msiK RNA: a 59-nucleotide sequence from Propionibacterium cyclohexanicum. A search with the family's covariance model found it, with a score of 52 bits. The base pairs follow the family's consensus structure, which is taken from published work.
RNA sequence: AUUCGUCCCGUUCUACUACGGAUCGUCGGGCACGUUCCUGCCCGUGGAAAGGAUUGGCU
Numbered sequence: 001a002u003u004c005g006u007c008c009c010g011u012u013c014u015a016c017u018a019c020g021g022a023u024c025g026u027c028g029g030g031c032a033c034g035u036u037c038c039u040g041c042c043c044g045u046g047g048a049a050a051g052g053a054u055u056g057g058c059u
Stems, first nucleotide, its partner, number of pairs: 009051001011049005027044006
Taxonomically the source falls in Propionibacterium (Bacteria, Bacillati, Actinomycetota, Propionibacteriaceae).